[Rfam]
Rfam assigns this 76-nucleotide RNA sequence from Eptesicus fuscus to the family "mir-9223 microRNA precursor family". Gene Ontology terms of the family: miRNA-mediated post-transcriptional gene silencing and RISC complex. Rfam's curators put it in the seed alignment. Taxonomically the source falls in Eptesicus (Eukaryota, Bilateria, Mammalia, Laurasiatheria).
RNA sequence: GGUUGUUCUUGAGUGAUGCACCCUGGAAUCAGGCUUGCUCCUCUCUGAUUCCAGGGUGCAUCACCUGAGAACCACC
Numbered sequence: 001g002g003u004u005g006u007u008c009u010u011g012a013g014u015g016a017u018g019c020a021c022c023c024u025g026g027a028a029u030c031a032g033g034c035u036u037g038c039u040c041c042u043c044u045c046u047g048a049u050u051c052c053a054g055g056g057u058g059c060a061u062c063a064c065c066u067g068a069g070a071a072c073c074a075c076c
Base pairs, nucleotide, nucleotide: 002075003074005072006071007070008069009068010067011066013064014063015062016061017060019058020057021056022055023054025052026051027050028049029048030047031046032045033044